[Rfam]
RNA sequence: UACUCCCUGCGGCGUUCGAGAAGGCUGUACGAUCCUUGAACCAAUAACGUGACGAUUGGUCGCCGACCCAGACGUCGCCUGUGUGCGUGUGCCGUGGGUACGUGCCUGAUGGUGACGGGAACGCGACCCUCCUGAACCGUAGGUUCAGGUCACUCAGCCGAACCGGCGCUGCGGGGGCUCU
Numbered sequence: 001u002a003c004u005c006c007c008u009g010c011g012g013c014g015u016u017c018g019a020g021a022a023g024g025c026u027g028u029a030c031g032a033u034c035c036u037u038g039a040a041c042c043a044a045u046a047a048c049g050u051g052a053c054g055a056u057u058g059g060u061c062g063c064c065g066a067c068c069c070a071g072a073c074g075u076c077g078c079c080u081g082u083g084u085g086c087g088u089g090u091g092c093c094g095u096g097g098g099u100a101c102g103u104g105c106c107u108g109a110u111g112g113u114g115a116c117g118g119g120a121a122c123g124c125g126a127c128c129c130u131c132c133u134g135a136a137c138c139g140u141a142g143g144u145u146c147a148g149g150u151c152a153c154u155c156a157g158c159c160g161a162a163c164c165g166g167c168g169c170u171g172c173g174g175g176g177g178c179u180c181u
Stems, first nucleotide, its partner, number of pairs: 002179001004177012017165002033149002037147006058128003062124002067119001069118001073117007085105002088102005
Shown here is a 181-nucleotide RNA sequence from Hydrogenophilus thermoluteolus, a member of the family "6S / SsrS RNA". By type it is a non-coding RNA gene. A reference for the family is Wassarman and Storz (2000), "6S RNA regulates E. coli RNA polymerase activity", Cell. The base pairs follow the family's consensus structure, which is taken from published work. It scores 55 bits against the family's covariance model.